RNA sequence: AGCUGUGCCGGUUCGAUCGGGAUACUCAUCAAAUUACAUUGAAAACCGAGCCCACUUCUCUUGCCAAUGGCGGGCCACAAUCCUGCGAAAGCAGUAAGCCGAGAGGCCGGUGGAUUACAAAGACGGAGAGUACUCAAAUCUUUUAACAAAGGAGUUUUCAUCACAUCACCGCGCGGCACCCUUU
Numbered sequence: 001a002g003c004u005g006u007g008c009c010g011g012u013u014c015g016a017u018c019g020g021g022a023u024a025c026u027c028a029u030c031a032a033a034u035u036a037c038a039u040u041g042a043a044a045a046c047c048g049a050g051c052c053c054a055c056u057u058c059u060c061u062u063g064c065c066a067a068u069g070g071c072g073g074g075c076c077a078c079a080a081u082c083c084u085g086c087g088a089a090a091g092c093a094g095u096a097a098g099c100c101g102a103g104a105g106g107c108c109g110g111u112g113g114a115u116u117a118c119a120a121a122g123a124c125g126g127a128g129a130g131u132a133c134u135c136a137a138a139u140c141u142u143u144u145a146a147c148a149a150a151g152g153a154g155u156u157u158u159c160a161u162c163a164c165a166u167c168a169c170c171g172c173g174c175g176g177c178a179c180c181c182u183u184u
Stems, first nucleotide, its partner, number of pairs: 054131003058128002061126003065122001068119002075113004080095002098107003

Rfam assigns this 184-nucleotide RNA sequence from Prevotellaceae bacterium HUN156 to the family "Bacteroidales-1 6S-Bacteroidales RNA suggested". On this family, see Ryan et al., Nat Commun 2020: "A high-resolution transcriptome map identifies small RNA regulation of metabolism in the gut microbe Bacteroides thetaiotaomicron". By type it is a small RNA. Lineage of the source: Bacteria > Bacteroidota > Bacteroidia > Bacteroidales > Prevotellaceae. Bacteroidales-1 was first reported in a comparative genomics-based approach of genome and metagenome sequences from Weinberg et al. 2010 In a high-resolution transcriptome map study of Bacteroides thetaiotaomicron, Ryan et al. 2020 report this sRNA as 6S RNA homologue of Bacteroides, in the study they obtain evidence of small product RNAs (pRNAs) related to 6S function.